[Rfam]
RNA sequence: UAAUAUGAACAGAAAGGGAUGAUGGAUGGACAAUGAAGAACUAAUCUUAUUUUUUAGAAUUUGAAAUUCAUAUUUCGAAUGAUAAACUAAUAGGAUUAGUCUGCCCAUUUAUAAUCAUCUCCCGUGCGACAAGUAUGAGAGUUUAUUUAAGUACGGUUCUGACUAAUCCUUCCAACACAAAUUGGGAGGAUUUUUUU
Numbered sequence: 001u002a003a004u005a006u007g008a009a010c011a012g013a014a015a016g017g018g019a020u021g022a023u024g025g026a027u028g029g030a031c032a033a034u035g036a037a038g039a040a041c042u043a044a045u046c047u048u049a050u051u052u053u054u055u056a057g058a059a060u061u062u063g064a065a066a067u068u069c070a071u072a073u074u075u076c077g078a079a080u081g082a083u084a085a086a087c088u089a090a091u092a093g094g095a096u097u098a099g100u101c102u103g104c105c106c107a108u109u110u111a112u113a114a115u116c117a118u119c120u121c122c123c124g125u126g127c128g129a130c131a132a133g134u135a136u137g138a139g140a141g142u143u144u145a146u147u148u149a150a151g152u153a154c155g156g157u158u159c160u161g162a163c164u165a166a167u168c169c170u171u172c173c174a175a176c177a178c179a180a181a182u183u184g185g186g187a188g189g190a191u192u193u194u195u196u197u
Base pairs, nucleotide, nucleotide: 017112019110023107024106025105029101030100031099042098043097044096045095046094047093048092049091050090051089053086054085059080060079061078062077063076064075065074066073067072119141120140121139123137124136125135126134127133165192166191167190168189169188170187171186172185173184174183175182

Rfam assigns this 197-nucleotide RNA from Halalkalibacter akibai to the family "Bacillus sRNA ncr1575". A search with the family's covariance model found it, with a score of 132 bits.